[Rfam]
RNA sequence: AAUCCUUCAGGGCAGGGUGAAAUUCCCGACCGGCGGUAUAGUCCGCGAGCUGUAGUGAGUAAUCACUGUGGCAGACCUGGUGAGACUCCAGGACCGACAGUAAAGUCUGGAUGGAAGAAUCGGAUA
Numbered sequence: 001a002a003u004c005c006u007u008c009a010g011g012g013c014a015g016g017g018u019g020a021a022a023u024u025c026c027c028g029a030c031c032g033g034c035g036g037u038a039u040a041g042u043c044c045g046c047g048a049g050c051u052g053u054a055g056u057g058a059g060u061a062a063u064c065a066c067u068g069u070g071g072c073a074g075a076c077c078u079g080g081u082g083a084g085a086c087u088c089c090a091g092g093a094c095c096g097a098c099a100g101u102a103a104a105g106u107c108u109g110g111a112u113g114g115a116a117g118a119a120u121c122g123g124a125u126a
Stems, first nucleotide, its partner, number of pairs: 003124003006119003015027003029106002031096002033046004041094002049072003076092005098109003
Dot-bracket structure: ..((((((......(((.......))).[[((((((....[[))))..(((..................)))...(((((.......)))))]])).(((....]]))).......)))..)))..